[Rfam]
RNA sequence: AUGUUGUUCUGACUGUUUCCAUAGCUUAUAUUGUCUCAAAAUGCAUAUAAGCUCGUGAACAACAGGCAGGACAACUG
Number, nucleotide and partner (000 for none) at each position: 001a000002u000003g075004u074005u073006g072007u071008u070009c069010u068011g067012a000013c065014u064015g063016u062017u061018u058019c057020c000021a000022u000023a053024g052025c051026u050027u049028a048029u047030a046031u000032u045033g044034u043035c000036u000037c000038a000039a000040a000041a000042u000043g034044c033045a032046u030047a029048u028049a027050a026051g025052c024053u023054c000055g000056u000057g019058a018059a000060c000061a017062a016063c015064a014065g013066g000067c011068a010069g009070g008071a007072c006073a005074a004075c003076u000077g000
Shown here is a 77-nucleotide sequence from Caenorhabditis remanei, a member of the family "mir-231 microRNA precursor family". Rfam's curators put it in the seed alignment. The family's consensus secondary structure was predicted with RNAalifold.